[Rfam]
RNA sequence: ACAACAUUCGGACCGUUGGUGUACUGUACAAUAUCAUCCGCUCGGCGGAAGAUCUUCCCUUUGUCGU
Numbered sequence: 001a002c003a004a005c006a007u008u009c010g011g012a013c014c015g016u017u018g019g020u021g022u023a024c025u026g027u028a029c030a031a032u033a034u035c036a037u038c039c040g041c042u043c044g045g046c047g048g049a050a051g052a053u054c055u056u057c058c059c060u061u062u063g064u065c066g067u
Base pairs, nucleotide, nucleotide: 004064005063006062010058011057012056015053016052017051020049022047024045025044026043029040